[Rfam]
The record is a 96-nucleotide sequence from Papaver somniferum, which matches "Small nucleolar RNA snoR109" in Rfam. The literature on the family includes a 2002 paper in Curr Biol by Marker et al., "Experimental RNomics: identification of 140 candidates for small non-messenger RNAs in the plant Arabidopsis thaliana".

RNA sequence: AAUCUGUUCUGCAUUGAAAUAAGAAGUUUACUGGCUGGUUGUUGUGAGGUUUUAUCUCUUUAAUCGACAUAUCUGCUUAGCGAACUUCUUACAAAC
Numbered sequence: 001a002a003u004c005u006g007u008u009c010u011g012c013a014u015u016g017a018a019a020u021a022a023g024a025a026g027u028u029u030a031c032u033g034g035c036u037g038g039u040u041g042u043u044g045u046g047a048g049g050u051u052u053u054a055u056c057u058c059u060u061u062a063a064u065c066g067a068c069a070u071a072u073c074u075g076c077u078u079a080g081c082g083a084a085c086u087u088c089u090u091a092c093a094a095a096c
Base pairs, nucleotide, nucleotide: 021090022089023088024087025086026085027084028083033077034076035075037073038072039071041068042067043066044065